[Rfam]
The family of this 252-nucleotide RNA from Streptomyces caelestis is "Streptomyces sRNA 4677". Pairs were carried over by alignment from the consensus structure. It scores 188 bits against the family's covariance model. For this family Rfam cites "Complex intra-operonic dynamics mediated by a small RNA in Streptomyces coelicolor" (Hindra et al., PLoS One, 2014).
RNA sequence: CGCUCCGGUGCCGUCGACGACUGAAAGACAAAGAACUUCAGGGAAAACACCCCCCGCCAAACCCCACCCCUCCCGCCCGUGGUCGCGCUCACUCGGGCGGGUGAACAUCCUCGAACCGGCUGGAUUUCGCGGCCCCCAAGGGGCGACGCUCAGCGCAACGCACCACCGCAACCACAGACAUGAGACGGCCCCCGCCGGGACGGACAAUCCCGGUGCGAGGGCCUGACCACCGAGGAAGAAGAAGGCUUCCCG
Numbered sequence: 001c002g003c004u005c006c007g008g009u010g011c012c013g014u015c016g017a018c019g020a021c022u023g024a025a026a027g028a029c030a031a032a033g034a035a036c037u038u039c040a041g042g043g044a045a046a047a048c049a050c051c052c053c054c055c056g057c058c059a060a061a062c063c064c065c066a067c068c069c070c071u072c073c074c075g076c077c078c079g080u081g082g083u084c085g086c087g088c089u090c091a092c093u094c095g096g097g098c099g100g101g102u103g104a105a106c107a108u109c110c111u112c113g114a115a116c117c118g119g120c121u122g123g124a125u126u127u128c129g130c131g132g133c134c135c136c137c138a139a140g141g142g143g144c145g146a147c148g149c150u151c152a153g154c155g156c157a158a159c160g161c162a163c164c165a166c167c168g169c170a171a172c173c174a175c176a177g178a179c180a181u182g183a184g185a186c187g188g189c190c191c192c193c194g195c196c197g198g199g200a201c202g203g204a205c206a207a208u209c210c211c212g213g214u215g216c217g218a219g220g221g222c223c224u225g226a227c228c229a230c231c232g233a234g235g236a237a238g239a240a241g242a243a244g245g246c247u248u249c250c251c252g
Base pairs, nucleotide, nucleotide: 007231008230009229010228016077018075019074089104090103091102092101093100094099119154120153121152122151123150187223188222189221190220191219193217194216195215197211198210199209200208234250235249236248237247238246